[Rfam]
RNA sequence: CUCAGAAACCACUACCAAGCCAGUCAACUAAGCAACCACCACUCAAUACCUCAAGAUGUCUCCCUGCUCCUGCAACUGCUGCUCCGGCAACUGCAACGCCUGCUCCUGCAGCUCCUGCAGCGUAAGUCUCC
Numbered sequence: 001c002u003c004a005g006a007a008a009c010c011a012c013u014a015c016c017a018a019g020c021c022a023g024u025c026a027a028c029u030a031a032g033c034a035a036c037c038a039c040c041a042c043u044c045a046a047u048a049c050c051u052c053a054a055g056a057u058g059u060c061u062c063c064c065u066g067c068u069c070c071u072g073c074a075a076c077u078g079c080u081g082c083u084c085c086g087g088c089a090a091c092u093g094c095a096a097c098g099c100c101u102g103c104u105c106c107u108g109c110a111g112c113u114c115c116u117g118c119a120g121c122g123u124a125a126g127u128c129u130c131c
Stems, first nucleotide, its partner, number of pairs: 065089004072082003093118003102109002
RNA: A. fumigatus sRNA Afu_254